This 87-nucleotide sequence from Colocasia esculenta belongs to the Rfam family "Plastid-rpl20 3UTR RNA". The source organism's lineage runs through Eukaryota, Viridiplantae, Tracheophyta, Euphyllophyta and Colocasia. It is annotated as a cis-regulatory element. The family's consensus secondary structure was predicted with LocARNA. Rfam's curators write: Plastid rpl20 is a non-coding RNA (ncRNA) recognised in plastids. It was found in the three prime untranslated region (3UTR) of rpl20 gene, it presence in the 3UTR region sugest a role in transcript maduration.

[Rfam]
RNA sequence: ACAAAAUUCCCCAGAGAAUAAACUCCGGGAAGAUAGAUUUUAAAAAAAUUAAGAUAAGUAGUAUGAAUGAACGAACUAAGUUUCAUU
Numbered sequence: 001a002c003a004a005a006a007u008u009c010c011c012c013a014g015a016g017a018a019u020a021a022a023c024u025c026c027g028g029g030a031a032g033a034u035a036g037a038u039u040u041u042a043a044a045a046a047a048a049u050u051a052a053g054a055u056a057a058g059u060a061g062u063a064u065g066a067a068u069g070a071a072c073g074a075a076c077u078a079a080g081u082u083u084c085a086u087u
Base pairs, nucleotide, nucleotide: 007031008030010029011028012027014025015024016023069083070082071081072080